[Rfam]
RNA sequence: GCGUUCUUGUGUUAUUUGUUGAUUGUCUUUCUAUCAAAUCAAUAAUUGUCAAAAAGAACGCAUAUUAAUUAUAGGCAACAACUCGUUAUUGUUUAUACGAAUUUUAAAAGUAUCAGCAUAUUCCAUUUGUUGUUUACAAUU
Numbered sequence: 001g002c003g004u005u006c007u008u009g010u011g012u013u014a015u016u017u018g019u020u021g022a023u024u025g026u027c028u029u030u031c032u033a034u035c036a037a038a039u040c041a042a043u044a045a046u047u048g049u050c051a052a053a054a055a056g057a058a059c060g061c062a063u064a065u066u067a068a069u070u071a072u073a074g075g076c077a078a079c080a081a082c083u084c085g086u087u088a089u090u091g092u093u094u095a096u097a098c099g100a101a102u103u104u105u106a107a108a109a110g111u112a113u114c115a116g117c118a119u120a121u122u123c124c125a126u127u128u129g130u131u132g133u134u135u136a137c138a139a140u141u
Base pairs, nucleotide, nucleotide: 002060003059004058005057006056007055010051011050016045017044018043019042020041021040022039090118091117092116095113096112097111098110

A member of the RNA family "Small nucleolar RNA psi18S-1377" from Musca domestica, 141 nucleotides long. Its family is annotated with nucleolus and RNA processing in the Gene Ontology. It scores 61 bits against the family's covariance model. The organism belongs to Musca, within Eukaryota. psi18S-1377 is a member of the H/ACA class of snoRNA. This family is responsible for guiding the modification of uridines 1377 and 1279 to pseudouridine in Drosophila 18S rRNA. Pairs were carried over by alignment from the consensus structure, which was predicted with RNAalifold.